Background
FGF-1 internal ribosome entry site (IRES): a 173-nucleotide RNA sequence from Cervus elaphus. The family has 6 seed sequences and 127 matches in Rfam 15.1. A reference for the family is Martineau et al. (2004), "Internal Ribosome Entry Site Structural Motifs Conserved among Mammalian Fibroblast Growth Factor 1 Alternatively Spliced mRNAs", Mol Cell Biol. Gene Ontology term of the family: ribosome binding. A search with the family's covariance model found it, with a score of 93 bits. Rfam's curators write: This family represents the FGF-1 internal ribosome entry site (IRES).
[Rfam]
RNA sequence: GACCCUAGGGGAAUAAGGGCAUCGCCUCCUUUGGUGAAGGCCACUCCCUUCUGAUGGAGGAUGGGAACUCCCUUCCUCCCACUGAGGCCUGCCUGCUGCAGUCCUGCUAGGACAGUGUGGACGCCGUAGGCUGCCGCAGCUGCUAGCACCCCAGAAAGAAAGCGCCCCAGAGC
Dot-bracket structure: ..(.(..((((..(.((((.....(((.(......).))).....))))(((....(.(((.(((....))))))..)....((.(((....((((.((....(..............).............)).))))..)))..))....)))...).....)))).).).